[Rfam]
RNA: c-di-GMP-I riboswitch aptamer
RNA sequence: GGGAUGGUUCGCCACAUUCGCCGCGAGGCGAAGCCGGAAAGCCACGGGUCCUCUUAGGGGGAAGGGACGGCCGGGUUGCAAUC
Numbered sequence: 001g002g003g004a005u006g007g008u009u010c011g012c013c014a015c016a017u018u019c020g021c022c023g024c025g026a027g028g029c030g031a032a033g034c035c036g037g038a039a040a041g042c043c044a045c046g047g048g049u050c051c052u053c054u055u056a057g058g059g060g061g062a063a064g065g066g067a068c069g070g071c072c073g074g075g076u077u078g079c080a081a082u083c
Stems, first nucleotide, its partner, number of pairs: 012037002017032006040077004045073003048068005054062001